[Rfam]
RNA: Lysine riboswitch aptamer
RNA sequence: AUAACAGGUAGGGGUUGCGGUAACCAUCAGUAAAACACUGCAAAACGGUGAGAUUUCAGGAUAGUGUUUGAAAGGGGAAGUCGCCGAAGAAUAGGUCUUUCUCACAAAGUAUUUUUUCGGAAAAUGGUGCUUUAGAACAGAGAGGUUUUUGCUUUUACCAGCAACUAGUACUUUCAAUAUUUUAAUACCGAAUUUUGAAAUUUUACUCACAAGGUCAAUUCUGGCUUUGCAGUGAAUAAUUGCAGAGUUGCCACAUAGCUAUGUAUGUGGAGAACUAUCUCACGA
Numbered sequence: 001a002u003a004a005c006a007g008g009u010a011g012g013g014g015u016u017g018c019g020g021u022a023a024c025c026a027u028c029a030g031u032a033a034a035a036c037a038c039u040g041c042a043a044a045a046c047g048g049u050g051a052g053a054u055u056u057c058a059g060g061a062u063a064g065u066g067u068u069u070g071a072a073a074g075g076g077g078a079a080g081u082c083g084c085c086g087a088a089g090a091a092u093a094g095g096u097c098u099u100u101c102u103c104a105c106a107a108a109g110u111a112u113u114u115u116u117u118c119g120g121a122a123a124a125u126g127g128u129g130c131u132u133u134a135g136a137a138c139a140g141a142g143a144g145g146u147u148u149u150u151g152c153u154u155u156u157a158c159c160a161g162c163a164a165c166u167a168g169u170a171c172u173u174u175c176a177a178u179a180u181u182u183u184a185a186u187a188c189c190g191a192a193u194u195u196u197g198a199a200a201u202u203u204u205a206c207u208c209a210c211a212a213g214g215u216c217a218a219u220u221c222u223g224g225c226u227u228u229g230c231a232g233u234g235a236a237u238a239a240u241u242g243c244a245g246a247g248u249u250g251c252c253a254c255a256u257a258g259c260u261a262u263g264u265a266u267g268u269g270g271a272g273a274a275c276u277a278u279c280u281c282a283c284g285a
Stems, first nucleotide, its partner, number of pairs: 006280006017084005024077002033069008088222005094216006223249011251270007